[Rfam]
RNA sequence: UUAGCUACUUUAGAUAGGUUUGUAUUCAUCAUGAUGGAUACAAACGUUAAACGACAGUUUGUAUCUAUGAUGGCUAAAGAACUUUGUAUUGCAGCAAAAAGCCACGUAGACAAAAUGCUAAGUGGCUGAGCAGUGAAAAUACAAAGUAAAAGUAUCAAGCAUUCUACUUUUUCAAUUUAUUUUCCGACUUUUCAA
Numbered sequence: 001u002u003a004g005c006u007a008c009u010u011u012a013g014a015u016a017g018g019u020u021u022g023u024a025u026u027c028a029u030c031a032u033g034a035u036g037g038a039u040a041c042a043a044a045c046g047u048u049a050a051a052c053g054a055c056a057g058u059u060u061g062u063a064u065c066u067a068u069g070a071u072g073g074c075u076a077a078a079g080a081a082c083u084u085u086g087u088a089u090u091g092c093a094g095c096a097a098a099a100a101g102c103c104a105c106g107u108a109g110a111c112a113a114a115a116u117g118c119u120a121a122g123u124g125g126c127u128g129a130g131c132a133g134u135g136a137a138a139a140u141a142c143a144a145a146g147u148a149a150a151a152g153u154a155u156c157a158a159g160c161a162u163u164c165u166a167c168u169u170u171u172u173c174a175a176u177u178u179a180u181u182u183u184c185c186g187a188c189u190u191u192u193c194a195a
Base pairs, nucleotide, nucleotide: 001077002076003075004074005073006072007071011067012066013065014064015063016062018045019044020043021042022041023040024039025038026037027036028035029034048061049060050059051058052057081147082146083145084144085143086142087141088140089139090138095133100127101126102125103124104123105122107120108119109118148171149170150169151168152167153166154165
The family of this 195-nucleotide sequence from Enterococcus faecium is "Enterococcus sRNA 2410". NCBI's taxonomy places the organism under Bacteria, Bacillota, Enterococcaceae, Enterococcus, Enterococcus faecium. About the family: Produced as 2 transcripts on Northern blot. Expressed in mid, late exponential and early stationary phases of growth. Expression remained uniform under daptomycin exposure. For this family Rfam cites "Small RNAs in vancomycin-resistant Enterococcus faecium involved in daptomycin response and resistance" (Sinel et al., Sci Rep, 2017).